[Rfam]
Nucleotides: 249
Stems, first nucleotide, its partner, number of pairs: 001159008011145004017045007047102005055096003062089005067082006106140003113133005163246001166244004170186005191237003194233005199227001201225001207220005
Number, partner (000 for none) and nucleotide at each position: 001159g002158g003157a004156g005155c006154a007153u008152u009000g010000c011145g012144a013143g014142g015000a016000u017045c018044u019043g020042u021041c022040c023039c024000u025000a026000g027000u028000a029000c030000g031000a032000g033000a034000g035000g036000a037000c038000c039023g040022g041021g042020a043019u044018g045017g046000a047102c048101a049100c050099a051098c052000c053000u054000c055096u056095g057094g058000u059000g060000g061000a062089c063088c064087u065086g066085u067082u068081g069080u070079g071078g072077c073000g074000c075000c076000a077072g078071c079070c080069g081068c082067a083000u084000a085066g086065c087064a088063g089062g090000g091000u092000a093000g094057c095056u096055a097000u098051g099050u100049g101048u102047g103000g104000a105000c106140u107139c108138g109000a110000u111000a112000a113133c114132c115131g116130c117129u118000g119000a120000a121000g122000g123000c124000a125000u126000c127000u128000a129117a130116g131115c132114g133113g134000g135000a136000a137000a138108c139107g140106a141000a142014c143013c144012u145011c146000u147000a148000a149000a150000c151000g152008a153007g154006u155005g156004c157003u158002c159001c160000c161000u162000a163246u164000c165000a166244g167243g168242g169241c170186c171185g172184u173183g174182g175000a176000a177000g178000a179000c180000c181000a182174c183173c184172a185171c186170g187000u188000c189000g190000a191237u192236a193235g194233g195232c196231c197230g198229g199227g200000u201225g202000u203000g204000g205000a206000a207220g208219c209218g210217u211216g212000g213000c214000a215000a216211c217210a218209u219208g220207c221000g222000a223000a224000g225201c226000u227199u228000a229198c230197c231196g232195g233194u234000a235193c236192u237191a238000a239000u240000c241169g242168c243167c244166c245000g246163a247000u248000c249000g
Source information: Bacterial large subunit ribosomal RNA: a 249-nucleotide part of an RNA from Aureimonas endophytica. The match comes from Rfam's covariance-model search (2643 bits). Pairs were carried over by alignment from the consensus structure, which is taken from published work. The organism belongs to Aureimonas, within Bacteria.